A member of the RNA family "transfer-messenger RNA" from Paenibacillus bovis, 367 nucleotides long. The organism belongs to Paenibacillus, within Bacteria.
[Rfam]
RNA sequence: GGGGGCGUUUUUUGGAUUCGACGGGGGUAGGUCGGGCAUGAGUAGCGGGUAGUGGGGACGCGUCCGCUUUAUCAACGCUAAAGCCUAUUAAACGGCAAACAACAAACUAACUACGCUUUCGCAGCCUAAGAAACUGUGAAACGUGCUCUCGCCUCGCAUCGCCCAUGUGCCAGGAUGAGGGCCCAACUCUUAGUGGGCUACGCUGUCACAUCUCCGCCUGGGGUGUGCUGAAGAAGAUAAUCAGGCUGACCCAACGUAGAGCCGGUUACAGGGCGCUACUCGGGUGACAUUAAAUCUGUGACUACACCCGUAGAAGCUUGUGUUGCGUUAUCUUCGGACAGGGGUUCGACUCCCCUCGCCUCCAUAU
Numbered sequence: 001g002g003g004g005g006c007g008u009u010u011u012u013u014g015g016a017u018u019c020g021a022c023g024g025g026g027g028u029a030g031g032u033c034g035g036g037c038a039u040g041a042g043u044a045g046c047g048g049g050u051a052g053u054g055g056g057g058a059c060g061c062g063u064c065c066g067c068u069u070u071a072u073c074a075a076c077g078c079u080a081a082a083g084c085c086u087a088u089u090a091a092a093c094g095g096c097a098a099a100c101a102a103c104a105a106a107c108u109a110a111c112u113a114c115g116c117u118u119u120c121g122c123a124g125c126c127u128a129a130g131a132a133a134c135u136g137u138g139a140a141a142c143g144u145g146c147u148c149u150c151g152c153c154u155c156g157c158a159u160c161g162c163c164c165a166u167g168u169g170c171c172a173g174g175a176u177g178a179g180g181g182c183c184c185a186a187c188u189c190u191u192a193g194u195g196g197g198c199u200a201c202g203c204u205g206u207c208a209c210a211u212c213u214c215c216g217c218c219u220g221g222g223g224u225g226u227g228c229u230g231a232a233g234a235a236g237a238u239a240a241u242c243a244g245g246c247u248g249a250c251c252c253a254a255c256g257u258a259g260a261g262c263c264g265g266u267u268a269c270a271g272g273g274c275g276c277u278a279c280u281c282g283g284g285u286g287a288c289a290u291u292a293a294a295u296c297u298g299u300g301a302c303u304a305c306a307c308c309c310g311u312a313g314a315a316g317c318u319u320g321u322g323u324u325g326c327g328u329u330a331u332c333u334u335c336g337g338a339c340a341g342g343g344g345u346u347c348g349a350c351u352c353c354c355c356u357c358g359c360c361u362c363c364a365u366a367u
Stems, first nucleotide, its partner, number of pairs: 001363007022336009035324009046310005051068005060078004117141008145182006152174003156170004161198006203233002206230001209227003216246005249285004254280001256279004261274003265302004271295001340356005
The match comes from Rfam's covariance-model search (173 bits).